[Rfam]
RNA sequence: CGCAGAGUAGAGACCUGCGCGUGGGGCUUGGCCCCGAAGUGCCUGACCAACGGGGAGUUGUGGCAGGACGAAGUGACGGAAACGUCCGCGGUGCAGGUUUCGCAUCCCACUGCU
Numbered sequence: 001c002g003c004a005g006a007g008u009a010g011a012g013a014c015c016u017g018c019g020c021g022u023g024g025g026g027c028u029u030g031g032c033c034c035c036g037a038a039g040u041g042c043c044u045g046a047c048c049a050a051c052g053g054g055g056a057g058u059u060g061u062g063g064c065a066g067g068a069c070g071a072a073g074u075g076a077c078g079g080a081a082a083c084g085u086c087c088g089c090g091g092u093g094c095a096g097g098u099u100u101c102g103c104a105u106c107c108c109a110c111u112g113c114u
Stems, first nucleotide, its partner, number of pairs: 002113004010101010020090003039069002042067004047063003053107003057103001073087001075086003

THF (Tetrahydrofolate) riboswitch aptamer: a 114-nucleotide RNA sequence from Gemmiger formicilis. Gene Ontology term of the family: tetrahydrofolate metabolic process. Tetrahydrofolate (THF) riboswitch was first reported for Ames et al. as an RNA motif in 5' untranslated (5'-UTR)regions of folate transport and biosynthesis genes in Firmicutes genomes. Pairs were carried over by alignment from the consensus structure, which is taken from published work. The family has 101 seed sequences and 747 matches in Rfam 15.1.